[Rfam]
RNA sequence: AACCCAGGGGCAUUUCCCUGUGACGUUUCUCUCGCGAGUGAAACGUUAGAGGGAAAUACCCCUGGGUU
Numbered sequence: 001a002a003c004c005c006a007g008g009g010g011c012a013u014u015u016c017c018c019u020g021u022g023a024c025g026u027u028u029c030u031c032u033c034g035c036g037a038g039u040g041a042a043a044c045g046u047u048a049g050a051g052g053g054a055a056a057u058a059c060c061c062c063u064g065g066g067u068u
Stems, first nucleotide, its partner, number of pairs: 001068010012057008021048009031038002
The record is a 68-nucleotide RNA sequence from Nematostella vectensis, which matches "mir-2041 microRNA precursor family" in Rfam.
The family's consensus secondary structure was predicted with RNAalifold.
The match comes from Rfam's covariance-model search (78 bits).
NCBI's taxonomy places the organism under Eukaryota, Metazoa, Anthozoa, Hexacorallia, Nematostella.